[Rfam]
Record summary: Group I catalytic intron: a 333-nucleotide sequence from Plicatura crispa. Pairs were carried over by alignment from the consensus structure, which is taken from published work. The source organism's lineage runs through Eukaryota, Opisthokonta, Amylocorticiales, Amylocorticiaceae and Plicatura crispa. The literature on the family includes a 1990 paper in Annu Rev Biochem by Cech, "Self-splicing of group I introns". Its family is annotated with Group I intron splicing in the Gene Ontology.

RNA sequence: CAGAAAAGUUGAUUGUGUUAGCUUUUAAUAGUGGACUCAAAGUGUUCCGCUAGUGGGCCUGCUCCGCCAGCGGCGAGGAGCAGGGUACCCGCGAGACCGUCAAAUUGCGGGAAGUUCCUUAGAGCCUUUUCUACCGCCUUCGCAUGGAAACAUAGCGUCGCGCACCAGGGUAAUGACCUCGGGUAUGGUAAAAACGAAAAGGAUUGGAUAAUCCGCAGCCAAGUCCUAAGGGUGUAACAGCCUACGGAUGCAGUUCAACGACUAGAUGGCGGUCGGUCUUGGUCGCAAACGACCUCGACUUAAGAUAUAGUCUGGCCCCCGUGAAAGCGGGCU
Number, nucleotide and partner (000 for none) at each position: 001c000002a000003g000004a000005a026006a025007a024008g023009u000010u021011g019012a018013u017014u000015g000016u000017g013018u012019u011020a000021g010022c000023u008024u007025u006026u005027a000028a000029u000030a037031g036032u000033g000034g000035a000036c031037u030038c000039a000040a000041a000042g000043u000044g000045u000046u000047c000048c000049g000050c000051u000052a000053g000054u000055g000056g000057g000058c000059c000060u000061g000062c000063u000064c000065c000066g000067c000068c000069a000070g000071c000072g000073g000074c000075g000076a000077g000078g000079a000080g000081c000082a000083g000084g000085g000086u000087a000088c000089c000090c000091g000092c000093g000094a000095g274096a273097c272098c271099g270100u000101c268102a267103a000104a000105u000106u217107g216108c215109g214110g213111g212112a000113a000114g000115u000116u208117c207118c206119u000120u000121a000122g000123a000124g000125c000126c000127u000128u000129u000130u000131c000132u000133a000134c000135c000136g000137c000138c000139u000140u000141c000142g000143c000144a000145u000146g000147g000148a000149a000150a000151c000152a000153u000154a000155g000156c000157g000158u000159c000160g000161c000162g000163c000164a000165c000166c000167a000168g000169g000170g000171u000172a000173a000174u000175g000176a000177c000178c000179u000180c000181g000182g000183g000184u000185a000186u000187g000188g000189u000190a000191a000192a000193a000194a000195c000196g000197a000198a000199a000200a000201g000202g000203a000204u000205u000206g118207g117208a116209u000210a000211a000212u111213c110214c109215g108216c107217a106218g254219c253220c000221a000222a000223g249224u248225c247226c246227u000228a000229a000230g000231g242232g241233u240234g000235u000236a000237a000238c000239a000240g233241c232242c231243u000244a000245c000246g226247g225248a224249u223250g000251c000252a000253g219254u218255u000256c000257a000258a313259c000260g312261a311262c310263u309264a308265g000266a000267u102268g101269g000270c099271g098272g097273u096274c095275g000276g299277u298278c297279u000280u000281g294282g293283u292284c291285g000286c000287a000288a000289a000290c000291g284292a283293c282294c281295u000296c000297g278298a277299c276300u000301u000302a000303a000304g000305a000306u000307a000308u264309a263310g262311u261312c260313u258314g000315g000316c000317c000318c331319c330320c329321g328322u327323g000324a000325a000326a000327g322328c321329g320330g319331g318332c000333u000